[Rfam]
RNA sequence: UGGCGUGCGGUUUGACGACUGUCCGAGCCACUGCGGAAGGCGUGUCCUUCAGUUGCGCUUGGGAGAAAGUCCCCAGAUGAGAUGCAGAGAGUGCAAUCGCGAAAGCGAACUGAUCAAGUCGCAAUCAAUCGACGGUGAAGCCUUGGCUGAGUCGCUGCCCGCUUUGAUCAUCCCGUCACAGCACAGUUAUGUUGGUCGGUCAUUCCAUGACUCAAUUCAAUGGGGCUUACCAAUCUUACGCC
Numbered sequence: 001u002g003g004c005g006u007g008c009g010g011u012u013u014g015a016c017g018a019c020u021g022u023c024c025g026a027g028c029c030a031c032u033g034c035g036g037a038a039g040g041c042g043u044g045u046c047c048u049u050c051a052g053u054u055g056c057g058c059u060u061g062g063g064a065g066a067a068a069g070u071c072c073c074c075a076g077a078u079g080a081g082a083u084g085c086a087g088a089g090a091g092u093g094c095a096a097u098c099g100c101g102a103a104a105g106c107g108a109a110c111u112g113a114u115c116a117a118g119u120c121g122c123a124a125u126c127a128a129u130c131g132a133c134g135g136u137g138a139a140g141c142c143u144u145g146g147c148u149g150a151g152u153c154g155c156u157g158c159c160c161g162c163u164u165u166g167a168u169c170a171u172c173c174c175g176u177c178a179c180a181g182c183a184c185a186g187u188u189a190u191g192u193u194g195g196u197c198g199g200u201c202a203u204u205c206c207a208u209g210a211c212u213c214a215a216u217u218c219a220a221u222g223g224g225g226c227u228u229a230c231c232a233a234u235c236u237u238a239c240g241c242c
Stems, first nucleotide, its partner, number of pairs: 002242006009235003014196001016194004022063007036050005067228003071225004083095004097108004112169003116165003120161001121158002130154004140147002198212006
A member of the RNA family "RNase MRP" from Ramazzottius varieornatus, 242 nucleotides long.
About the family: RNase MRP is an enzymatically active ribonucleoprotein with two distinct roles in eukaryotes. In mitochondria it plays a direct role in the initiation of mitochondrial DNA replication. In the nucleus it is involved in precursor rRNA processing, where it cleaves the internal transcribed spacer 1 between 18S and 5.8S rRNAs. Despite distinct functions, RNase MRP has been shown to be evolutionarily related to RNase P. Like eukaryotic RNase P, RNase MRP is not catalytically active without associated protein subunits.
It is annotated as a ribozyme.
Pairs were carried over by alignment from the consensus structure, which is taken from published work.
A reference for the family is Piccinelli et al. (2005), "Identification and analysis of ribonuclease P and MRP RNA in a broad range of eukaryotes", Nucleic Acids Res.
The source organism's lineage runs through Eukaryota, Opisthokonta, Parachela, Hypsibioidea and Ramazzottius.